[Rfam]
A member of the RNA family "mir-190 microRNA precursor family" from Cyprinus carpio, 75 nucleotides long. The literature on the family includes a 2008 paper in Stem Cells by Bar et al., "MicroRNA discovery and profiling in human embryonic stem cells by deep sequencing of small RNA libraries". It is one of the family's seed sequences. Rfam links the family to the GO terms RISC complex and miRNA-mediated post-transcriptional gene silencing. Lineage of the source: Eukaryota > Neopterygii > Cypriniformes > Cyprinidae > Cyprinus.
RNA sequence: GGCUCUGUUUGAUAUGUUUGAUAUAUUAGGUUGUUAUUCUGUCCAACUAUAUAUCAAACAUAUUCCUACAGUGUC
Number, nucleotide and partner (000 for none) at each position: 001g000002g000003c000004u000005c071006u070007g069008u068009u000010u000011g064012a063013u062014a061015u060016g059017u058018u057019u056020g055021a054022u053023a052024u051025a050026u000027u000028a000029g048030g047031u046032u045033g044034u000035u000036a000037u000038u000039c000040u000041g000042u000043c000044c033045a032046a031047c030048u029049a000050u025051a024052u023053a022054u021055c020056a019057a018058a017059c016060a015061u014062a013063u012064u011065c000066c000067u000068a008069c007070a006071g005072u000073g000074u000075c000